[Rfam]
RNA sequence: AUAGAGAGUGUAAACAUCCUACACUCUCAGCUGUGUGGAAAAGAUGAAAGCUGGGAGAAGGCUGUUUACUCUCUUUG
Numbered sequence: 001a002u003a004g005a006g007a008g009u010g011u012a013a014a015c016a017u018c019c020u021a022c023a024c025u026c027u028c029a030g031c032u033g034u035g036u037g038g039a040a041a042a043g044a045u046g047a048a049a050g051c052u053g054g055g056a057g058a059a060g061g062c063u064g065u066u067u068a069c070u071c072u073c074u075u076u077g
Stems, first nucleotide, its partner, number of pairs: 002077005008071001010069007018061003024057009
Source information: Shown here is a 77-nucleotide RNA sequence from Ophiophagus hannah, a member of the family "mir-30 microRNA precursor family". The organism belongs to Ophiophagus, within Eukaryota. This family consists of the mammalian microRNA (miRNA) precursor mir-30a. Animal miRNAs are transcribed as ~70nt precursors and subsequently processed by the Dicer enzyme to give a ~22nt product. Pairs were carried over by alignment from the consensus structure, which was predicted with PFOLD.